[Rfam]
RNA sequence: AAAGCCUUCUUAUGGGUUGGCUCAAAGCAGAUCUAUUCUAUACCUGACAAGUACCAAUACGCAACGGGG
Numbered sequence: 001a002a003a004g005c006c007u008u009c010u011u012a013u014g015g016g017u018u019g020g021c022u023c024a025a026a027g028c029a030g031a032u033c034u035a036u037u038c039u040a041u042a043c044c045u046g047a048c049a050a051g052u053a054c055c056a057a058u059a060c061g062c063a064a065c066g067g068g069g
Base pairs, nucleotide, nucleotide: 003022004021006019009016010015043068044067045066051060052059053058
Dot-bracket structure: ..((.(..((....))..).))....................(((.....(((....))).....))).
A member of the RNA family "Plastid-clpP 5UTR RNA" from Protea cynaroides, 69 nucleotides long. Rfam 15.1 lists 2,105 matches to the family in 526 species. A reference for the family is Richter et al. (2023), "Retrograde signaling in plants: A critical review focusing on the GUN pathway and beyond", Plant Commun. Taxonomically the source falls in Protea (Eukaryota, Streptophyta, Spermatophyta, Proteaceae).